A member of the RNA family "Glycine riboswitch aptamer" from Streptomyces sp. SID8379, 102 nucleotides long. Lineage of the source: Bacteria > Bacillati > Actinomycetota > Actinomycetes > Streptomyces.

RNA sequence: UGAAUCCGCGCGGGAGAGUUCCGGGUACCCCGAUCGGGGUCCGGACGCCGAAGGAGCAAGUCCCUCCCUUGAAUCUCUCAGGCCCCGUACCGCGCGGGCGAG
Numbered sequence: 001u002g003a004a005u006c007c008g009c010g011c012g013g014g015a016g017a018g019u020u021c022c023g024g025g026u027a028c029c030c031c032g033a034u035c036g037g038g039g040u041c042c043g044g045a046c047g048c049c050g051a052a053g054g055a056g057c058a059a060g061u062c063c064c065u066c067c068c069u070u071g072a073a074u075c076u077c078u079c080a081g082g083c084c085c086c087g088u089a090c091c092g093c094g095c096g097g098g099c100g101a102g
Stems, first nucleotide, its partner, number of pairs: 006097008020045007047083003050079002054077003060070001